[Rfam]
RNA sequence: GAAAGAUAGGUGAGAAUCCUAUCCGCCGAAAGACUAAGGUUUCCUGGGGCAGGCUCGUCCGCCCAGGGUAAGUCGGGACCUAAGGUAAGGCCGAGAGGCGUAGCCGAUGGACAACAGGUUGAGAUUCCUGUACUAAUAUCAAUCGAUAUGAGCGAUGGAGGGACGCAGGAGGCUAAUGACGCAUGGUGCUGGAUCCAUGUGAAAGCGUCAAGGCUGAAAGUGAGUCAAAUGCUUGCUUUCGAAAAGGCUAAGGCGUGAUGCGGAGCGAAAUAAAGUAGCGAAGGUCAUGAUGUCACACUGCCGAGAAAAGCUUCUAGCCAGAGAGAUAUUACCCGUACCGCAAACCGACACAGGUAGUCGAGUGGAGAACACUAAGGUGAG
Numbered sequence: 001g002a003a004a005g006a007u008a009g010g011u012g013a014g015a016a017u018c019c020u021a022u023c024c025g026c027c028g029a030a031a032g033a034c035u036a037a038g039g040u041u042u043c044c045u046g047g048g049g050c051a052g053g054c055u056c057g058u059c060c061g062c063c064c065a066g067g068g069u070a071a072g073u074c075g076g077g078a079c080c081u082a083a084g085g086u087a088a089g090g091c092c093g094a095g096a097g098g099c100g101u102a103g104c105c106g107a108u109g110g111a112c113a114a115c116a117g118g119u120u121g122a123g124a125u126u127c128c129u130g131u132a133c134u135a136a137u138a139u140c141a142a143u144c145g146a147u148a149u150g151a152g153c154g155a156u157g158g159a160g161g162g163a164c165g166c167a168g169g170a171g172g173c174u175a176a177u178g179a180c181g182c183a184u185g186g187u188g189c190u191g192g193a194u195c196c197a198u199g200u201g202a203a204a205g206c207g208u209c210a211a212g213g214c215u216g217a218a219a220g221u222g223a224g225u226c227a228a229a230u231g232c233u234u235g236c237u238u239u240c241g242a243a244a245a246g247g248c249u250a251a252g253g254c255g256u257g258a259u260g261c262g263g264a265g266c267g268a269a270a271u272a273a274a275g276u277a278g279c280g281a282a283g284g285u286c287a288u289g290a291u292g293u294c295a296c297a298c299u300g301c302c303g304a305g306a307a308a309a310g311c312u313u314c315u316a317g318c319c320a321g322a323g324a325g326a327u328a329u330u331a332c333c334c335g336u337a338c339c340g341c342a343a344a345c346c347g348a349c350a351c352a353g354g355u356a357g358u359c360g361a362g363u364g365g366a367g368a369a370c371a372c373u374a375a376g377g378u379g380a381g
Base pairs, nucleotide, nucleotide: 005023006022007021008020009019010018024379025378026377027376032359033358034357035356038339039338043067044066045065046064047063048062052060053059074335075334076333077332079110080109084105085104086103088101090099091098092097114131115130116129117128118127134331135330136329137328138327139326140325143322144321152318153317157314158313159312160311165301166300167299168298171294172293173292176288177287178286179285180284181200182199183198184197185196186195201261205256206255207254208253212249213248214247216240217239218238219237220236221235222234224232225231265279266278268276345354346353361373362372363371364370
Shown here is a 381-nucleotide part of an RNA from Lactobacillus psittaci, a member of the family "Bacterial large subunit ribosomal RNA". Rfam links the family to the GO terms structural constituent of ribosome and ribosome. Lineage of the source: Bacteria > Bacilli > Lactobacillaceae > Lactobacillus > Lactobacillus psittaci. The base pairs follow the family's consensus structure, which is taken from published work.